[Rfam]
RNA sequence: AGCACUAUAUUUAAACCAAUGGAUGGACAUUUUCCCCAUUCUCGGUUACGCUGUAGUGCUAAAGAAUUCCCUGGCUCUUCUUCCCCAGGCACAGCUGACUGCCAUUUGGCUGUUGCUUUGUGGAGUGAAGGAACACAG
Numbered sequence: 001a002g003c004a005c006u007a008u009a010u011u012u013a014a015a016c017c018a019a020u021g022g023a024u025g026g027a028c029a030u031u032u033u034c035c036c037c038a039u040u041c042u043c044g045g046u047u048a049c050g051c052u053g054u055a056g057u058g059c060u061a062a063a064g065a066a067u068u069c070c071c072u073g074g075c076u077c078u079u080c081u082u083c084c085c086c087a088g089g090c091a092c093a094g095c096u097g098a099c100u101g102c103c104a105u106u107u108g109g110c111u112g113u114u115g116c117u118u119u120g121u122g123g124a125g126u127g128a129a130g131g132a133a134c135a136c137a138g
Stems, first nucleotide, its partner, number of pairs: 002059008014047004021041006068133001070131003074126005080120001089116003092112004097107002
This 138-nucleotide sequence from Echinops telfairi belongs to the Rfam family "Small nucleolar RNA SNORA46". ACA46 is a member of the H/ACA class of snoRNA that guide the sites of modification of uridines to pseudouridines. The source organism's lineage runs through Eukaryota, Tetrapoda, Mammalia, Afrosoricida and Echinops. The sequence is in the family's curated seed alignment. The family has 22 seed sequences and 582 matches in Rfam 15.1.